Overview
Shown here is an 85-nucleotide sequence from Callithrix jacchus, a member of the family "mir-571 microRNA precursor family". It scores 45 bits against the family's covariance model.
Nucleotides: 085
Stems, first nucleotide, its partner, number of pairs: 002084003006080001008078002012074003016070002018067002021065001024062001026060002032053004037048001039046001
Number, partner (000 for none) and nucleotide at each position: 001000a002084g003083u004082g005000a006080g007000a008078c009077c010000a011000a012074g013073u014072u015000g016070a017069c018067u019066g020000u021065g022000c023000c024062a025000u026060u027059u028000c029000u030000u031000g032053a033052u034051c035050u036000g037048u038000a039046g040000c041000c042000a043000a044000g045000a046039c047000c048037a049000g050035g051034g052033g053032u054000c055000c056000u057000g058000u059027a060026g061000u062024u063000u064000c065021c066019c067018a068000u069017g070016u071000g072014a073013g074012u075000g076000a077009g078008g079000a080006c081000c082004u083003g084002c085000c
The base pairs follow the family's consensus structure, which was predicted with RNAalifold. Rfam links the family to the GO terms RISC complex and miRNA-mediated post-transcriptional gene silencing. Lineage of the source: Eukaryota > Chordata > Craniata > Amniota > Callithrix.